Background:
The record is a 163-nucleotide RNA sequence from Coprococcus eutactus, which matches "Clostridiales-1 RNA" in Rfam.
RNA sequence: AGAAAGCCCCAGACGGCGAACAUGCAGCGUUCAUGCUUGCAUGAAACGCUGCAUGUUCAUCGGAUGGGCAGAUAUUCAUGAGCAUGUAUGCCGAUAGGCAGGAAUGCGAAUGAAUGUGCGAUUACGAGAGCCACGAAGUGGCGAAGUAAUCGUAAGGCUUUCU
Numbered sequence: 001a002g003a004a005a006g007c008c009c010c011a012g013a014c015g016g017c018g019a020a021c022a023u024g025c026a027g028c029g030u031u032c033a034u035g036c037u038u039g040c041a042u043g044a045a046a047c048g049c050u051g052c053a054u055g056u057u058c059a060u061c062g063g064a065u066g067g068g069c070a071g072a073u074a075u076u077c078a079u080g081a082g083c084a085u086g087u088a089u090g091c092c093g094a095u096a097g098g099c100a101g102g103a104a105u106g107c108g109a110a111u112g113a114a115u116g117u118g119c120g121a122u123u124a125c126g127a128g129a130g131c132c133a134c135g136a137a138g139u140g141g142c143g144a145a146g147u148a149a150u151c152g153u154a155a156g157g158c159u160u161u162c163u
Stems, first nucleotide, its partner, number of pairs: 001163007008068004015061002018058013031044005072117008082107004089100004119152007130142004
Taxonomically the source falls in Coprococcus eutactus (Bacteria, Bacillati, Lachnospiraceae, Coprococcus). The family's consensus secondary structure is taken from published work. By type it is a small RNA.